[Rfam]
RNA: THF (Tetrahydrofolate) riboswitch aptamer
Organism: Vagococcus acidifermentans
RNA sequence: AACAGAGUAGAAAUUAGCGCGUCAAGUGCCGGCGGGAUGGGAUGUUGCCCGCUGGACGAAAAAUACAAUGUAUUUGCGGUGCUUUUUUCGCGUUCGCUGCA
Numbered sequence: 001a002a003c004a005g006a007g008u009a010g011a012a013a014u015u016a017g018c019g020c021g022u023c024a025a026g027u028g029c030c031g032g033c034g035g036g037a038u039g040g041g042a043u044g045u046u047g048c049c050c051g052c053u054g055g056a057c058g059a060a061a062a063a064u065a066c067a068a069u070g071u072a073u074u075u076g077c078g079g080u081g082c083u084u085u086u087u088u089c090g091c092g093u094u095c096g097c098u099g100c101a
Stems, first nucleotide, its partner, number of pairs: 003099003010089004016083004020078003026057002029055008040095005061075004